[Rfam]
RNA sequence: AGUGUAGGUAGAGGCGCGGGCUUCAAGAGUAAGAAUCCGGAGAUUAUGGGAAUCUAAGAAGGAUUUUGAAAGGGAAUACCGCCGAAGCUGAGGAUGGCCCAUUCCAUCCCAUGCUGGUCCUGUAUUGAAUAAAUGCAGGAUUGUCAGGGUUAUCCACCCUGGAGGGCUAUCUCACAU
Numbered sequence: 001a002g003u004g005u006a007g008g009u010a011g012a013g014g015c016g017c018g019g020g021c022u023u024c025a026a027g028a029g030u031a032a033g034a035a036u037c038c039g040g041a042g043a044u045u046a047u048g049g050g051a052a053u054c055u056a057a058g059a060a061g062g063a064u065u066u067u068g069a070a071a072g073g074g075a076a077u078a079c080c081g082c083c084g085a086a087g088c089u090g091a092g093g094a095u096g097g098c099c100c101a102u103u104c105c106a107u108c109c110c111a112u113g114c115u116g117g118u119c120c121u122g123u124a125u126u127g128a129a130u131a132a133a134u135g136c137a138g139g140a141u142u143g144u145c146a147g148g149g150u151u152a153u154c155c156a157c158c159c160u161g162g163a164g165g166g167c168u169a170u171c172u173c174a175c176a177u
Base pairs, nucleotide, nucleotide: 006172007171008170009169010168011167016082017081018080019079022076023075024074032067033066034065035064036063037062038061086115087114088113092109093108094107095106096105097104116142117141118140119139120138121137122136123135124134125133126132144162145161146160147159148158149157150156

Background:
Lysine riboswitch aptamer: a 177-nucleotide sequence from Bacillus sp. FJAT-18017. Taxonomically the source falls in Bacillus (Bacteria, Bacillati, Bacillota, Bacilli).